A member of the RNA family "Guanidine-I riboswitch aptamer" from Allomesorhizobium alhagi, 115 nucleotides long. About the family: This family represents a conserved RNA structure found upstream of the ykkC and yxkD genes in Bacillus subtilis and related genes in other bacteria. The function of this family is unclear although it has been suggested that it may function to switch on efflux pumps and detoxification systems in response to harmful environmental molecules. The source organism's lineage runs through Bacteria, Pseudomonadati, Hyphomicrobiales, Phyllobacteriaceae and Allomesorhizobium alhagi.
RNA sequence: GUGCAGAGCGUCUAGGGUUCCGGCCGCGACCAAGCGGUGCUGGUCCAAGAGACGCGACCGCCAGGGAUGCACUGAGGCAUCCGGCGGAACACGGCGGGCCAAAAUCCCGGGAGAA
Numbered sequence: 001g002u003g004c005a006g007a008g009c010g011u012c013u014a015g016g017g018u019u020c021c022g023g024c025c026g027c028g029a030c031c032a033a034g035c036g037g038u039g040c041u042g043g044u045c046c047a048a049g050a051g052a053c054g055c056g057a058c059c060g061c062c063a064g065g066g067a068u069g070c071a072c073u074g075a076g077g078c079a080u081c082c083g084g085c086g087g088a089a090c091a092c093g094g095c096g097g098g099c100c101a102a103a104a105u106c107c108c109g110g111g112a113g114a115a
Base pairs, nucleotide, nucleotide: 008055009054010053011052012051015046016045020043021042022040023038024037025036026035027034058087059086060085061084062083064081090110092113096108097107098106